[Rfam]
RNA: BsrG
Organism: Neobacillus vireti
RNA sequence: AUGUAAUAGUAUCGGGUUUCUCAAGGGUGGUCGGCACACUCCCCGCUGAAAGGGGGUGGUGCUGAUUGACAGUUUUUGAAUCAUUAAUGUUUGCGAUUGGUUUCGCAAGUUUAAUCGUUGCUAUUCUGUCAUUUAAUAACCAUAAAAAAUAAUCCACCCUUGAGUUGAAUGGCCUUGGGUGGAUUAUUAUUCACACAAUGUCGAUCCCCCUUGAAGGGAACCUGCUAUUGCAUUAGACCGUGUGGUGUAGCAGCACCAGCG
Numbered sequence: 001a002u003g004u005a006a007u008a009g010u011a012u013c014g015g016g017u018u019u020c021u022c023a024a025g026g027g028u029g030g031u032c033g034g035c036a037c038a039c040u041c042c043c044c045g046c047u048g049a050a051a052g053g054g055g056g057u058g059g060u061g062c063u064g065a066u067u068g069a070c071a072g073u074u075u076u077u078g079a080a081u082c083a084u085u086a087a088u089g090u091u092u093g094c095g096a097u098u099g100g101u102u103u104c105g106c107a108a109g110u111u112u113a114a115u116c117g118u119u120g121c122u123a124u125u126c127u128g129u130c131a132u133u134u135a136a137u138a139a140c141c142a143u144a145a146a147a148a149a150u151a152a153u154c155c156a157c158c159c160u161u162g163a164g165u166u167g168a169a170u171g172g173c174c175u176u177g178g179g180u181g182g183a184u185u186a187u188u189a190u191u192c193a194c195a196c197a198a199u200g201u202c203g204a205u206c207c208c209c210c211u212u213g214a215a216g217g218g219a220a221c222c223u224g225c226u227a228u229u230g231c232a233u234u235a236g237a238c239c240g241u242g243u244g245g246u247g248u249a250g251c252a253g254c255a256c257c258a259g260c261g
Stems, first nucleotide, its partner, number of pairs: 001233005007227003011223001013203003016199003020164008029154003037058002040056005068130005081096002105121003168188003205219002208217002239261003243258006